[Rfam]
RNA sequence: UGGCGCCCAACGUAGGGCUCCAGCACGGGGGAAUCUAGUGACGGAUGCUGUUCAAGAGGCCGGCAAAAAUAAAAGAGAAAGAAAGAGGAUGAGAUCGCGUGGGAACCUGCUACGCUUUCUAGACCUCGGUAAGUGAACAGAACUUAUGGGACAAGAAAUGAGUCAAUAUGAAAUGUUUGUUGAAGGCUUAGGAAAAGCUUUAAAGGCACGAGGAGUAAAGGUUAAAAUUUCGGAAGGAACUAUUGAUUCAAAACGAUGGAAAAGAGUUGGUGAUGCUCUGAAGGAUUUUUGUGAUGUUUUU
Numbered sequence: 001u002g003g004c005g006c007c008c009a010a011c012g013u014a015g016g017g018c019u020c021c022a023g024c025a026c027g028g029g030g031g032a033a034u035c036u037a038g039u040g041a042c043g044g045a046u047g048c049u050g051u052u053c054a055a056g057a058g059g060c061c062g063g064c065a066a067a068a069a070u071a072a073a074a075g076a077g078a079a080a081g082a083a084a085g086a087g088g089a090u091g092a093g094a095u096c097g098c099g100u101g102g103g104a105a106c107c108u109g110c111u112a113c114g115c116u117u118u119c120u121a122g123a124c125c126u127c128g129g130u131a132a133g134u135g136a137a138c139a140g141a142a143c144u145u146a147u148g149g150g151a152c153a154a155g156a157a158a159u160g161a162g163u164c165a166a167u168a169u170g171a172a173a174u175g176u177u178u179g180u181u182g183a184a185g186g187c188u189u190a191g192g193a194a195a196a197g198c199u200u201u202a203a204a205g206g207c208a209c210g211a212g213g214a215g216u217a218a219a220g221g222u223u224a225a226a227a228u229u230u231c232g233g234a235a236g237g238a239a240c241u242a243u244u245g246a247u248u249c250a251a252a253a254c255g256a257u258g259g260a261a262a263a264g265a266g267u268u269g270g271u272g273a274u275g276c277u278c279u280g281a282a283g284g285a286u287u288u289u290u291g292u293g294a295u296g297u298u299u300u301u
Base pairs, nucleotide, nucleotide: 006031007030008029012026013025036050037049038048039047085127086126087125088124093119094118098114099113100112101111102110134153135152138150141147159202160201161200162198163197211301212300213299214298215297216296219288220287221286222285223284
Dot-bracket structure: .....(((...((...........))..)))....((((.......))))..................................((((....((...(((((.......)))))...))....))))......((..(..(.....)..).)).....(((((.................................)).)))........((((((..(((((............................................................))))).......))))))
Mason-Pfizer monkey virus packaging signal: a 301-nucleotide sequence from Chinchilla lanigera. This family represents a group of sequences that are related to the Mason-Pfizer monkey virus (MPMV) packaging signal. The packaging signal is located in the 5' UTR and is required for specific RNA encapsidation. The match comes from Rfam's covariance-model search (78 bits). Pairs were carried over by alignment from the consensus structure, which was predicted with PFOLD. The source organism's lineage runs through Eukaryota, Deuterostomia, Eutheria, Chinchillidae and Chinchilla. For this family Rfam cites "Mutational analysis of the predicted secondary RNA structure of the Mason-Pfizer monkey virus packaging signal" (Mustafa et al., Virus Res, 2004).